[Rfam]
RNA sequence: CACUGUCGAGAUGAUUGUUAAAUACAAUGGGAAUCUCUCUGAAUACUCCUGAAAAGACUAACCUUUUACCUGAGACAGUG
Numbered sequence: 001c002a003c004u005g006u007c008g009a010g011a012u013g014a015u016u017g018u019u020a021a022a023u024a025c026a027a028u029g030g031g032a033a034u035c036u037c038u039c040u041g042a043a044u045a046c047u048c049c050u051g052a053a054a055a056g057a058c059u060a061a062c063c064u065u066u067u068a069c070c071u072g073a074g075a076c077a078g079u080g
Base pairs, nucleotide, nucleotide: 001080002079003078004077005076006075007074